RNA sequence: GCAAAUGACAUGGGGUGCCCGGUGCGACUCGCGCAGGGCUGAGAGAACACCCAUCGAACCUGAUCUGGGCCAUGCUAGCGAAGGGAUCGUCAUGACCGACAUCG
Dot-bracket structure: .....((((.((((.(((((...............)))).......)..)))).....(((...((((......))))...)))....))))............
TPP riboswitch aptamer (THI element): a 104-nucleotide RNA from Brevibacterium casei. Taxonomically the source falls in Brevibacterium casei (Bacteria, Bacillati, Actinomycetes, Micrococcales). A search with the family's covariance model found it, with a score of 61 bits. The family's consensus secondary structure is taken from published work.